[Rfam]
Nucleotides: 077
Stems, first nucleotide, its partner, number of pairs: 013045002016043003021077007028040003049066002052063001054061001
Number, partner (000 for none) and nucleotide at each position: 001000u002000g003000c004000c005000g006000u007000g008000a009000g010000u011000c012000u013045g014044a015000g016043g017042c018041c019000a020000c021077g022076g023075c024074a025073g026072a027071a028040g029039u030038g031000c032000u033000c034000a035000c036000a037000g038030c039029a040028c041018g042017g043016c044014u045013c046000u047000g048000u049066c050065a051000a052063a053000g054061u055000c056000c057000a058000a059000c060000a061054a062000a063052u064000c065050u066049g067000c068000a069000a070000a071027u072026u073025c074024u075023g076022c077021u